RNA: Bacterial small subunit ribosomal RNA, nucleotides 917 to 1502
Organism: Marinomonas mediterranea
RNA sequence: UGACGGGGGCCCGCACAAGCGGUGGAGCAUGUGGUUUAAUUCGAAGCAACGCGAAGAACCUUACCUACUCUUGACAUCCAGAGAACUUAGCAGAGAUGCUUUGGUGCCUUCGGGAACUCUGAGACAGGUGCUGCAUGGCUGUCGUCAGCUCGUGUUGUGAAAUGUUGGGUUAAGUCCCGUAACGAGCGCAACCCUUAUCCUUAUUUGCUAGCAGGUGAUGCUGAGAACUCUAAGGAGACUGCCGGUGACAAACCGGAGGAAGGUGGGGACGACGUCAAGUCAUCAUGGCCCUUACGAGUAGGGCUACACACGUGCUACAAUGGCGCAUACAGAGGGCGGCGAACUUGCGAAAGUAAGCAAAUCCCAAAAAGUGCGUCGUAGUCCGGAUUGGAGUCUGCAACUCGACUCCAUGAAGUCGGAAUCGCUAGUAAUCGUGGAUCAGAAUGCCACGGUGAAUACGUUCCCGGGCCUUGUACACACCGCCCGUCACACCAUGGGAGUUGAUUGCUCCAGAAGUAGCUAGCUUAACCUUAGGGAUGGCGGUUACCACGGAGUGGUCAAUGACUGGGGUGAAGUCGUAACAAGG
Numbered sequence: 001u002g003a004c005g006g007g008g009g010c011c012c013g014c015a016c017a018a019g020c021g022g023u024g025g026a027g028c029a030u031g032u033g034g035u036u037u038a039a040u041u042c043g044a045a046g047c048a049a050c051g052c053g054a055a056g057a058a059c060c061u062u063a064c065c066u067a068c069u070c071u072u073g074a075c076a077u078c079c080a081g082a083g084a085a086c087u088u089a090g091c092a093g094a095g096a097u098g099c100u101u102u103g104g105u106g107c108c109u110u111c112g113g114g115a116a117c118u119c120u121g122a123g124a125c126a127g128g129u130g131c132u133g134c135a136u137g138g139c140u141g142u143c144g145u146c147a148g149c150u151c152g153u154g155u156u157g158u159g160a161a162a163u164g165u166u167g168g169g170u171u172a173a174g175u176c177c178c179g180u181a182a183c184g185a186g187c188g189c190a191a192c193c194c195u196u197a198u199c200c201u202u203a204u205u206u207g208c209u210a211g212c213a214g215g216u217g218a219u220g221c222u223g224a225g226a227a228c229u230c231u232a233a234g235g236a237g238a239c240u241g242c243c244g245g246u247g248a249c250a251a252a253c254c255g256g257a258g259g260a261a262g263g264u265g266g267g268g269a270c271g272a273c274g275u276c277a278a279g280u281c282a283u284c285a286u287g288g289c290c291c292u293u294a295c296g297a298g299u300a301g302g303g304c305u306a307c308a309c310a311c312g313u314g315c316u317a318c319a320a321u322g323g324c325g326c327a328u329a330c331a332g333a334g335g336g337c338g339g340c341g342a343a344c345u346u347g348c349g350a351a352a353g354u355a356a357g358c359a360a361a362u363c364c365c366a367a368a369a370a371g372u373g374c375g376u377c378g379u380a381g382u383c384c385g386g387a388u389u390g391g392a393g394u395c396u397g398c399a400a401c402u403c404g405a406c407u408c409c410a411u412g413a414a415g416u417c418g419g420a421a422u423c424g425c426u427a428g429u430a431a432u433c434g435u436g437g438a439u440c441a442g443a444a445u446g447c448c449a450c451g452g453u454g455a456a457u458a459c460g461u462u463c464c465c466g467g468g469c470c471u472u473g474u475a476c477a478c479a480c481c482g483c484c485c486g487u488c489a490c491a492c493c494a495u496g497g498g499a500g501u502u503g504a505u506u507g508c509u510c511c512a513g514a515a516g517u518a519g520c521u522a523g524c525u526u527a528a529c530c531u532u533a534g535g536g537a538u539g540g541c542g543g544u545u546a547c548c549a550c551g552g553a554g555u556g557g558u559c560a561a562u563g564a565c566u567g568g569g570g571u572g573a574a575g576u577c578g579u580a581a582c583a584a585g586g
Base pairs, nucleotide, nucleotide: 001477002476003474004473005472007471008470009469010468011467012466013465015461016460019425020424021423022422023421024318026316027315028314029313030312031311032310033309034307035306040055041054042053043052064302065301066300067299068298069297070296077124078123079121080120081119082118083117086103089100090099091098092097105116107114108113127291128290130289131288132287133286136285137284138280139279140278141276143274144273148187149186150185151184152183153182154163155162156161166179167178168177169176193268194267195266196265198236199235200234201233202232203231208225209224212223213222214221239259240258242256243255244254245253246252322377323376324375325374326373327372328371334365335364336363339358340357344353345352346351384415389410390409391408392407393406394405395404431453432452433451434450435449436448437447480585482582485578486577490572491571492570493569495567496566497565500562501561502560503559504558505557506556507555508554509553510552511551516547517546518545519544520543521542523541524540525539529536530535